Plastid-rpl20 3UTR RNA: a 90-nucleotide sequence from Camphora micrantha. Rfam 15.1 lists 587 matches to the family in 315 species. The organism belongs to Camphora, within Eukaryota. For this family Rfam cites "Retrograde signaling in plants: A critical review focusing on the GUN pathway and beyond" (Richter et al., Plant Commun, 2023). A search with the family's covariance model found it, with a score of 67 bits. Plastid rpl20 is a non-coding RNA (ncRNA) recognised in plastids. It was found in the three prime untranslated region (3UTR) of rpl20 gene, it presence in the 3UTR region sugest a role in transcript maduration.

[Rfam]
RNA sequence: ACGGAGUUCCCCGGAGAAUGAACUCCGGGAGGGUAUAGUAGAAAUUCGUAUGAUAAGAUAAGUAGUAGGAAUGAACGAACACGUUUCAAU
Numbered sequence: 001a002c003g004g005a006g007u008u009c010c011c012c013g014g015a016g017a018a019u020g021a022a023c024u025c026c027g028g029g030a031g032g033g034u035a036u037a038g039u040a041g042a043a044a045u046u047c048g049u050a051u052g053a054u055a056a057g058a059u060a061a062g063u064a065g066u067a068g069g070a071a072u073g074a075a076c077g078a079a080c081a082c083g084u085u086u087c088a089a090u
Stems, first nucleotide, its partner, number of pairs: 007031002010029007073086004